[Rfam]
RNA: RNA Staph. aureus E (RoxS)
Organism: Staphylococcus carnosus
RNA sequence: AUGAAAUUAAUCACAUAACAAACAUACCCCUUUGUUUGAAGUGAAAAAUUUCUCCCAUCCCCUUUGUUUAGCGCCGUGUCUGAAUACACGGCGUUUUU
Numbered sequence: 001a002u003g004a005a006a007u008u009a010a011u012c013a014c015a016u017a018a019c020a021a022a023c024a025u026a027c028c029c030c031u032u033u034g035u036u037u038g039a040a041g042u043g044a045a046a047a048a049u050u051u052c053u054c055c056c057a058u059c060c061c062c063u064u065u066g067u068u069u070a071g072c073g074c075c076g077u078g079u080c081u082g083a084a085u086a087c088a089c090g091g092c093g094u095u096u097u098u
Stems, first nucleotide, its partner, number of pairs: 003052006011044004019038006070095010
Dot-bracket structure: ..((((((..((((....((((((........))))))..))))..)))))).................((((((((((......))))))))))...